RNA: SAH (S-adenosyl-L-homocysteine) riboswitch aptamer
RNA sequence: UCCUCCGAGGAGCGUUGCAGCAGCCCCAUUCACGCGUGGCUGCGAGGCUCGGACUUCAUGCAUAGCGCUUGCCUAGCCUCUUUCAACAGAUGAAGCAGCGGUGCAUUCGCAACGACGCUCAACCGCC
Numbered sequence: 001u002c003c004u005c006c007g008a009g010g011a012g013c014g015u016u017g018c019a020g021c022a023g024c025c026c027c028a029u030u031c032a033c034g035c036g037u038g039g040c041u042g043c044g045a046g047g048c049u050c051g052g053a054c055u056u057c058a059u060g061c062a063u064a065g066c067g068c069u070u071g072c073c074u075a076g077c078c079u080c081u082u083u084c085a086a087c088a089g090a091u092g093a094a095g096c097a098g099c100g101g102u103g104c105a106u107u108c109g110c111a112a113c114g115a116c117g118c119u120c121a122a123c124c125g126c127c
Stems, first nucleotide, its partner, number of pairs: 004053005021042005